[Rfam]
Shown here is a 105-nucleotide RNA from Prunus yedoensis, a member of the family "MIR6274 microRNA precursor family". The organism belongs to Prunus yedoensis, within Eukaryota. Rfam links the family to the GO terms miRNA-mediated post-transcriptional gene silencing and RISC complex. A search with the family's covariance model found it, with a score of 82 bits. The family's consensus secondary structure was predicted with RNAalifold.
RNA sequence: GGAUAACACUGUUUUGUUAUUCCCGACCAAUAACACAAUAACACGUGGAAAAUUUAUCCUAUAUGUCAUUGCGUUAUUGGCCGGAGAUAGCAAAAAGUGUUAUUC
Number, nucleotide and partner (000 for none) at each position: 001g000002g104003a103004u102005a101006a000007c000008a000009c000010u000011g000012u095013u094014u093015u092016g091017u090018u089019a088020u087021u000022c000023c084024c083025g082026a000027c080028c079029a078030a077031u076032a075033a074034c073035a000036c071037a070038a069039u068040a000041a066042c065043a064044c000045g062046u061047g060048g059049a000050a057051a000052a000053u000054u000055u000056a000057u050058c000059c048060u047061a046062u045063a000064u043065g042066u041067c000068a039069u038070u037071g036072c000073g034074u033075u032076a031077u030078u029079g028080g027081c000082c025083g024084g023085a000086g000087a020088u019089a018090g017091c016092a015093a014094a013095a012096a000097g000098u000099g000100u000101u005102a004103u003104u002105c000